[Rfam]
RNA sequence: UGUUGUCCAGAGCCCUUUUACCGUUGUGCUACUGUGGAAUCAGACGAGCAGUGCAAUAUUAAAAGGGCAUUGGCUGACA
Dot-bracket structure: (((.(.((((.((((((((...((((((((...................))))))))...)))))))).)))))..)))
Source information:
Rfam assigns this 79-nucleotide RNA from Esox lucius to the family "mir-130 microRNA precursor family". Taxonomically the source falls in Esox (Eukaryota, Metazoa, Bilateria, Esocidae). The family has 9 seed sequences and 2,580 matches in Rfam 15.1. For this family Rfam cites "Identification of tissue-specific microRNAs from mouse" (Lagos-Quintana et al., Curr Biol, 2002).